[Rfam]
RNA sequence: CACUGACAAGGGCAAACUUGUUGAAAAACAAGGACGCAAAGCCACGGGUCUAAGGUUGAGGUUGGAUCAACUAGGAUCGCCGGGCUGCCGGA
Numbered sequence: 001c002a003c004u005g006a007c008a009a010g011g012g013c014a015a016a017c018u019u020g021u022u023g024a025a026a027a028a029c030a031a032g033g034a035c036g037c038a039a040a041g042c043c044a045c046g047g048g049u050c051u052a053a054g055g056u057u058g059a060g061g062u063u064g065g066a067u068c069a070a071c072u073a074g075g076a077u078c079g080c081c082g083g084g085c086u087g088c089c090g091g092a
Stems, first nucleotide, its partner, number of pairs: 012037002017032006040086004045082003048077003055071004